RNA sequence: UAUAUUUGCCGCCUGAUUACCAAAGCGGUAAUCUGUACAUAAAAAUCAUUUAAAAUAAUAUUGGACAU
Numbered sequence: 001u002a003u004a005u006u007u008g009c010c011g012c013c014u015g016a017u018u019a020c021c022a023a024a025g026c027g028g029u030a031a032u033c034u035g036u037a038c039a040u041a042a043a044a045a046u047c048a049u050u051u052a053a054a055a056u057a058a059u060a061u062u063g064g065a066c067a068u
Stems, first nucleotide, its partner, number of pairs: 015033005
RNA: S15-Flavobacteria ribosomal protein leader